[Rfam]
RNA sequence: UCACUUGUCAAGAACUUUCGCUGUGACUUGCGUGCUUUGCAAUAUCGCAUCACAGUCUGAGUUCUUGCUGAGCGU
Numbered sequence: 001u002c003a004c005u006u007g008u009c010a011a012g013a014a015c016u017u018u019c020g021c022u023g024u025g026a027c028u029u030g031c032g033u034g035c036u037u038u039g040c041a042a043u044a045u046c047g048c049a050u051c052a053c054a055g056u057c058u059g060a061g062u063u064c065u066u067g068c069u070g071a072g073c074g075u
Base pairs, nucleotide, nucleotide: 004072005071006070009067010066011065012064013063014062015061016060017059021055022054023053024052025051026050030048031047032046
Dot-bracket structure: ...(((..(((((((((...((((((...(((.............))).))))))...)))))))))..)))...